[Rfam]
RNA sequence: UUCAGGUAUGGUGAUAUGGUUCCUAAGACAAUAGCAGGGAAGAUAUUUGGCUCGAUCUGCUCUCUGAGUGGUGUGCUGGUGAUCGCACUGCCUGUCCCUGUUAUCGUCUCCAAC
Numbered sequence: 001u002u003c004a005g006g007u008a009u010g011g012u013g014a015u016a017u018g019g020u021u022c023c024u025a026a027g028a029c030a031a032u033a034g035c036a037g038g039g040a041a042g043a044u045a046u047u048u049g050g051c052u053c054g055a056u057c058u059g060c061u062c063u064c065u066g067a068g069u070g071g072u073g074u075g076c077u078g079g080u081g082a083u084c085g086c087a088c089u090g091c092c093u094g095u096c097c098c099u100g101u102u103a104u105c106g107u108c109u110c111c112a113a114c
Stems, first nucleotide, its partner, number of pairs: 002113001005110001008107004013102004018097002021094001037077002040074001049063002
Overview: The record is a 114-nucleotide RNA from Pangasianodon hypophthalmus, which matches "Potassium channel RNA editing signal" in Rfam. Rfam's curators write: This family represents a group of sequences related to the human potassium channel Kv1.1 hairpin element which directs the efficient modification of an adenosine to inosine by an adenosine deaminase acting on RNA (ADAR). The ADAR modification causes an isoleucine/valine recoding event which lies in the ion-conducting pore of the potassium channel. It is thought that this editing event targets the process of fast inactivation and allows a more rapid recovery from inactivation at negative potentials. The family's consensus secondary structure is taken from published work. It scores 89 bits against the family's covariance model. NCBI's taxonomy places the organism under Eukaryota, Deuterostomia, Actinopteri, Clupeocephala, Pangasianodon.